[Rfam]
RNA sequence: ACUCAACGUUAAUUCUUUAAAAAGGGUGAGUUUAAGUUGUAAAAGCAAGCCACCUUGUAGUGGAUCCUUGAUCAGCUUGUUAGCCCUAAACUUGUUUUUAAGGAGUUU
Numbered sequence: 001a002c003u004c005a006a007c008g009u010u011a012a013u014u015c016u017u018u019a020a021a022a023a024g025g026g027u028g029a030g031u032u033u034a035a036g037u038u039g040u041a042a043a044a045g046c047a048a049g050c051c052a053c054c055u056u057g058u059a060g061u062g063g064a065u066c067c068u069u070g071a072u073c074a075g076c077u078u079g080u081u082a083g084c085c086c087u088a089a090a091c092u093u094g095u096u097u098u099u100a101a102g103g104a105g106u107u108u
Stems, first nucleotide, its partner, number of pairs: 023087005034078005043069003050063004
The record is a 108-nucleotide RNA from Seonamhaeicola sp. S2-3, which matches "6S-Flavo RNA" in Rfam. A search with the family's covariance model found it, with a score of 114 bits. Lineage of the source: Bacteria > Flavobacteriia > Flavobacteriales > Flavobacteriaceae > Seonamhaeicola.